[Rfam]
Nucleotides: 559
Stems, first nucleotide, its partner, number of pairs: 018080001020078002023074001034066004039055005082296006089289001092285003098279001100277003105272004113264003122254004130247005136142002145225008154217001155191004160186002170183005192202003205216004226242004303512005318457004324449004331444005459491006465484004516537002519535001523534004
Number, partner (000 for none) and nucleotide at each position: 001000g002000c003000g004000g005000a006000g007000u008000g009000a010000u011000a012000c013000u014000c015000c016000c017000g018080u019000u020078c021077c022000u023074u024000c025000u026000u027000g028000g029000a030000c031000a032000g033000a034066u035065u036064g037063c038000c039055u040054c041053c042052a043051c044000g045000u046000u047000c048000u049000u050000u051043g052042u053041g054040g055039a056000u057000c058000u059000c060000a061000a062000g063037g064036u065035g066034a067000u068000c069000a070000a071000g072000u073000c074023a075000c076000u077021g078020g079000u080018g081000a082296a083295u084294a085293g086292a087291g088000c089289g090000a091000a092285g093284g094283u095000u096000g097000a098279g099000g100277a101276g102275a103000c104000c105272u106271g107270a108269g109000g110000a111000a112000u113264u114263u115262c116000c117000a118000u119000g120000u121000g122254g123253c124252u125251u126000u127000g128000c129000c130247a131246g132245g133244a134243g135000u136142u137141g138000u139000a140000g141137c142136g143000a144000u145225g146224c147223u148222g149221u150220g151219u152218g153000u154217g155191u156190g157189u158188g159000c160186g161185g162000a163000u164000u165000u166000c167000c168000c169000c170183u171182c172181a173180u174179g175000g176000c177000a178000a179174c180173a181172u182171g183170a184000g185161c186160c187000u188158c189157a190156c191155a192202g193201g194200c195000c196000a197000a198000a199000a200194g201193c202192c203000c204000u205216g206215u207214c208213c209000g210000a211000a212000a213208g214207g215206a216205c217154c218152c219151a220150c221149a222148c223147a224146g225145u226242g227241g228240a229239g230000c231000a232000a233000c234000c235000c236000c237000a238000g239229c240228u241227c242226c243134c244133u245132c246131c247130u248000a249000c250000a251125a252124a253123g254122c255000u256000u257000u258000g259000u260000g261000a262115g263114a264113a265000u266000g267000a268000a269108c270107u271106c272105a273000a274000g275102u276101u277100u278000a279098u280000u281000c282000u283094a284093c285092u286000u287000u288000a289089u290000u291087c292086u293085c294084u295083a296082u297000u298000u299000a300000c301000a302000u303512c304511a305510g306509g307508c308000c309000c310000c311000a312000a313000a314000g315000a316000u317000g318457u319456c320455c321454u322000g323000a324449a325448g326447g327446u328000a329000c330000c331444u332443u333442g334441u335440g336000u337000a338000u339000c340000u341000g342000g343000g344000c345000a346000c347000g348000a349000g350000c351000a352000c353000c354000a355000u356000c357000a358000g359000c360000u361000a362000c363000c364000c365000g366000g367000a368000c369000u370000u371000g372000u373000a374000u375000u376000u377000c378000g379000g380000u381000a382000c383000a384000g385000a386000c387000a388000c389000a390000u391000g392000u393000g394000g395000u396000g397000a398000c399000c400000c401000a402000g403000c404000c405000c406000c407000u408000c409000u410000g411000c412000u413000u414000c415000g416000g417000c418000a419000g420000g421000g422000g423000g424000g425000c426000u427000u428000u429000c430000g431000c432000u433000c434000g435000c436000u437000c438000a439000g440335c441334a442333c443332g444331a445000g446327a447326u448325c449324u450000g451000a452000u453000c454321a455320g456319g457318a458000g459491c460490c461489c462488c463487u464486c465484c466483c467482a468481g469000u470000g471000u472000g473000c474000u475000u476000u477000a478000c479000a480000c481468c482467u483466g484465g485000c486464g487463a488462g489461g490460g491459g492000u493000u494000a495000a496000a497000a498000a499000u500000u501000g502000c503000c504000c505000a506000a507000g508307g509306c510305c511304u512303g513000g514000c515000a516537a517536a518000a519535c520000a521000a522000c523534c524533u525532a526531g527000g528000g529000g530000a531526c532525u533524a534523g535519g536517u537516u538000u539000u540000c541000c542000u543000u544000u545000u546000a547000u548000u549000a550000a551000u552000a553000a554000u555000a556000u557000c558000u559000g